A member of the RNA family "U11 spliceosomal RNA" from Laodelphax striatellus, 143 nucleotides long. The source organism's lineage runs through Eukaryota, Arthropoda, Allotriocarida, Hexapoda and Laodelphax.
[Rfam]
RNA sequence: UAAAAGGGCGUUUGUCACUUACAUGACAUGCAUUCUCUGGGUCUUCGGAUCCAGGGUUUGUAGGGUAUGGCCAUCAAGACAUACCCAACGCACAAUAUUUGGAAAAGUGGGGCAGUUGGCUGCCAACUCGCACCGACGCCCCC
Numbered sequence: 001u002a003a004a005a006g007g008g009c010g011u012u013u014g015u016c017a018c019u020u021a022c023a024u025g026a027c028a029u030g031c032a033u034u035c036u037c038u039g040g041g042u043c044u045u046c047g048g049a050u051c052c053a054g055g056g057u058u059u060g061u062a063g064g065g066u067a068u069g070g071c072c073a074u075c076a077a078g079a080c081a082u083a084c085c086c087a088a089c090g091c092a093c094a095a096u097a098u099u100u101g102g103a104a105a106a107g108u109g110g111g112g113c114a115g116u117u118g119g120c121u122g123c124c125a126a127c128u129c130g131c132a133c134c135g136a137c138g139c140c141c142c143c
Base pairs, nucleotide, nucleotide: 008091009090010089011088012087013028014027015026016025017024029062030061031060032059035056036055037054038053039052040051041050042049063086064085065084066083067082068081069080110141111140112139113138115137116136117135118134119133121132122131123130